[Rfam]
RNA sequence: AACAGGGUAGCCGAAAACUGUAAAGAGUAGGCG
Numbered sequence: 001a002a003c004a005g006g007g008u009a010g011c012c013g014a015a016a017a018c019u020g021u022a023a024a025g026a027g028u029a030g031g032c033g
Stems, first nucleotide, its partner, number of pairs: 002021004010032003
Notes:
Shown here is a 33-nucleotide sequence from Flavobacterium enshiense, a member of the family "DUF805b RNA". The family's RNA type in Rfam is cis-regulatory element. The organism belongs to Flavobacterium enshiense, within Bacteria.